Nucleotides: 071
Stems, first nucleotide, its partner, number of pairs: 001070004013034007
Number, partner (000 for none) and nucleotide at each position: 001070g002069a003068g004067c005000a006000a007000u008000g009000a010000u011000g012000a013034a014033a015032a016031g017030g018029u019028u020000u021000u022000a023000c024000u025000g026000c027000a028019g029018a030017c031016c032015u033014u034013u035000u036000u037000u038000a039000a040000u041000u042000a043000u044000g045000a046000a047000g048000u049000u050000u051000u052000c053000u054000a055000c056000a057000c058000u059000u060000g061000a062000u063000u064000u065000g066000a067004g068003c069002u070001c071000a